The record is a 78-nucleotide sequence from Actinocatenispora rupis, which matches "ZMP/ZTP riboswitch aptamer (pfl RNA motif)" in Rfam. Rfam links the family to the GO terms one-carbon metabolic process and regulation of purine nucleotide biosynthetic process. The base pairs follow the family's consensus structure, which is taken from published work.
RNA sequence: GUGACGGCACACGACUGGCGCGGGUGGUCGAACCACCGGGGAGUGACGUACGGGGUGUCGACCGCCUGGGUGCCCCAC
Numbered sequence: 001g002u003g004a005c006g007g008c009a010c011a012c013g014a015c016u017g018g019c020g021c022g023g024g025u026g027g028u029c030g031a032a033c034c035a036c037c038g039g040g041g042a043g044u045g046a047c048g049u050a051c052g053g054g055g056u057g058u059c060g061a062c063c064g065c066c067u068g069g070g071u072g073c074c075c076c077a078c
Base pairs, nucleotide, nucleotide: 004049005048006047008045011044012043015040016039017066018065019064020063024036025035026034027033055073056072057071058070059069